Overview: GlmZ RNA activator of glmS mRNA: a 204-nucleotide sequence from Winslowiella iniecta. On this family, see Argaman et al., Curr Biol 2001: "Novel small RNA-encoding genes in the intergenic regions of Escherichia coli". Rfam's curators write: This RNA was discovered in E. coli during a large scale screen. The sraJ gene was expressed in early logarithmic phase, but its level decreased with cell growth. NCBI's taxonomy places the organism under Bacteria, Pseudomonadati, Pseudomonadota, Gammaproteobacteria, Winslowiella. The base pairs follow the family's consensus structure, which is taken from published work.
RNA sequence: GUAGAUGCUCAUUCCACCUCUUAUGUUUGCGAAUGCUUCAUAAACCUGGGAAUGACGCAGAGCCAUUUUACGGUGCCAGUUGUCCAGCCAGCCAAUAUCGUGAUUCACCUUAUUGGAUUCACAGGACAUUACGUUGAGUCUGGUACCAAUCGGUUGUCUUACCGAUCUGAUAUUUACACCUGCCAUUUUGGCAGGUGUUUUUUU
Dot-bracket structure: ((...(((((((..(.(.(.......(.......)......)......)).)))).)))..))........(((((((...((((........((((.............)))).........)))).............)))))))........(((.....))).........((((((((((...))))))))))......